mir-9256 microRNA precursor family: a 67-nucleotide RNA from Pipistrellus kuhlii. Gene Ontology terms of the family: RISC complex and miRNA-mediated post-transcriptional gene silencing. Taxonomically the source falls in Pipistrellus (Eukaryota, Deuterostomia, Dipnotetrapodomorpha, Yangochiroptera).
RNA sequence: AUAUACACUGAGUGGCCAGAUUAUUAUGACUCCUGAAUGUAUAAUAAUCUGGUCACUCAGUGUAAAU
Number, nucleotide and partner (000 for none) at each position: 001a000002u000003a000004u064005a063006c062007a061008c060009u059010g058011a057012g056013u055014g054015g053016c052017c051018a000019g049020a048021u047022u046023a045024u044025u043026a042027u041028g040029a000030c000031u000032c000033c000034u000035g000036a000037a000038u000039g000040u028041a027042u026043a025044a024045u023046a022047a021048u020049c019050u000051g017052g016053u015054c014055a013056c012057u011058c010059a009060g008061u007062g006063u005064a004065a000066a000067u000